[Rfam]
RNA: Mammalian CPEB3 ribozyme
Organism: Alligator mississippiensis
RNA sequence: GUCGCAAGUUUGAGGCCAUAGCAGAAGCGCUCACUGUGUGGCCUUGUCAGAUUCUAACAAAUCUCUGAAUCCUGCU
Number, nucleotide and partner (000 for none) at each position: 001g000002u000003c000004g000005c000006a000007a000008g000009u000010u000011u000012g000013a044014g043015g042016c041017c040018a000019u000020a076021g075022c074023a073024g072025a000026a070027g039028c038029g037030c000031u000032c000033a000034c000035u000036g000037u029038g028039u027040g017041g016042c015043c014044u013045u000046g000047u000048c000049a064050g063051a062052u061053u060054c000055u000056a000057a000058c000059a000060a053061a052062u051063c050064u049065c000066u000067g000068a000069a000070u026071c000072c024073u023074g022075c021076u020